About this RNA: Shown here is a 100-nucleotide sequence from Dreissena polymorpha, a member of the family "Small nucleolar RNA SNORD16". Pairs were carried over by alignment from the consensus structure, which was predicted with PFOLD. A reference for the family is Fragapane et al. (1993), "A novel small nucleolar RNA (U16) is encoded inside a ribosomal protein intron and originates by processing of the pre-mRNA", EMBO J. It scores 68 bits against the family's covariance model.
RNA sequence: AGCAAUGAUGUUUGUAAUUUGCAUCAGAUGACAAGUUAGGUGACGGUUGCCUGCUGUCAUAUGCCUUCUUGUUUAACUGAUGACAACAUUGUACUGAGCU
Numbered sequence: 001a002g003c004a005a006u007g008a009u010g011u012u013u014g015u016a017a018u019u020u021g022c023a024u025c026a027g028a029u030g031a032c033a034a035g036u037u038a039g040g041u042g043a044c045g046g047u048u049g050c051c052u053g054c055u056g057u058c059a060u061a062u063g064c065c066u067u068c069u070u071g072u073u074u075a076a077c078u079g080a081u082g083a084c085a086a087c088a089u090u091g092u093a094c095u096g097a098g099c100u
Base pairs, nucleotide, nucleotide: 001100002099003098022082023081024080025079031072032071033070034069035068040064041063042058043057044056045055046054